[Rfam]
RNA sequence: CAAGAGAGCCAGACGAUCGCCGGUCGUGCUCGCAAGAGCAGGGCGGGAGGAAAGUCCGAACUCCGCAGGGCAGUGCGCCGGGUAACGCCCGGUCGGGGCAACUCGAAGGACCAGUGGCACAGAAAACAUACCGCCUCGAGUGCCGGGUCGGGGGCCGGAAAGGGUGACAGUCACACUUUCCGGUCCGCGACCCGACACUCGGGGUAAGGGUGAAAAGGUGCGGUAAGAGCGCACCGCGCUCGUGGCAACACGGGUGGCAGGCAAAACCCCGCACGGAGCAAGGCCAAAUAGGGAGGCACGAGGCUCACGCUUCAUGGGACGGCCCGUCCCACGCUUCCGGGUAGGCUGCUGGAUCCCGUCAGCAAUGACGGGGCUAGAGGAAUGAUCGUCAUCUCGCCGCGGUCGCAAGGCCGCGGCGAGGCACAGAAUUCGGCUUACGGCUCUCUCGGCGG
Dot-bracket structure: (.((((((((.(((((((.((.(((.((((......)))).))).))....[[[.[[[[[((((...[[[[.((((((((((.....)))))(((((....)))).)((....((.((............(((((((((((.......................................................)))))))))..)).......((((((.......))))))(((((((((....)))))))).)..))...)))))))))))))...((((......((((((..................(((((.]]]])))))..)))))).....))))......((((((((....))))))))..........)))))))......................................]]]]]]]]..)))))))).)....